RNA sequence: UCGCCGUGUCGCGACUGGCGUUCGGAUGGGCUCACCAUCAGGGAGCGACUGACACAAGGGACCUGCUCGAUCAUCGGGCGGGACGGCCGUCCGCCUGGGCCGUGACC
Numbered sequence: 001u002c003g004c005c006g007u008g009u010c011g012c013g014a015c016u017g018g019c020g021u022u023c024g025g026a027u028g029g030g031c032u033c034a035c036c037a038u039c040a041g042g043g044a045g046c047g048a049c050u051g052a053c054a055c056a057a058g059g060g061a062c063c064u065g066c067u068c069g070a071u072c073a074u075c076g077g078g079c080g081g082g083a084c085g086g087c088c089g090u091c092c093g094c095c096u097g098g099g100c101c102g103u104g105a106c107c
Base pairs, nucleotide, nucleotide: 003053005051008049009048010047011046012045015042016041017095018094019093020092026038027037028036029035084102085101086100087099088098